[Rfam]
RNA sequence: CCAGCUCUCUUUGCCGUAAGGCUAAGAUCAAGUGUAGUAUCUGUUCUUUUCAGUUUAAUCUCUGAAAGUAUUCCACUGGAAUACAACAUUGAUUAAUCUCAUUUUUGGUCCCCGUGGGAAUUCCUCUGUGCUUGCACAUGUAUUCCCGCACUGUGUCACUGGUCUUACACUGUCACCAGUAGACGCGAACUCAU
Numbered sequence: 001c002c003a004g005c006u007c008u009c010u011u012u013g014c015c016g017u018a019a020g021g022c023u024a025a026g027a028u029c030a031a032g033u034g035u036a037g038u039a040u041c042u043g044u045u046c047u048u049u050u051c052a053g054u055u056u057a058a059u060c061u062c063u064g065a066a067a068g069u070a071u072u073c074c075a076c077u078g079g080a081a082u083a084c085a086a087c088a089u090u091g092a093u094u095a096a097u098c099u100c101a102u103u104u105u106u107g108g109u110c111c112c113c114g115u116g117g118g119a120a121u122u123c124c125u126c127u128g129u130g131c132u133u134g135c136a137c138a139u140g141u142a143u144u145c146c147c148g149c150a151c152u153g154u155g156u157c158a159c160u161g162g163u164c165u166u167a168c169a170c171u172g173u174c175a176c177c178a179g180u181a182g183a184c185g186c187g188a189a190c191u192c193a194u
Base pairs, nucleotide, nucleotide: 008027009026010025013022014021015020048067049066050065051064052063053062068084069083070082071081072080073079074078114149115148116147117146118145119144120143121142127138128137129136130135152187153186154185155184156183157182159179160178161177162176163175
RNA: U2 spliceosomal RNA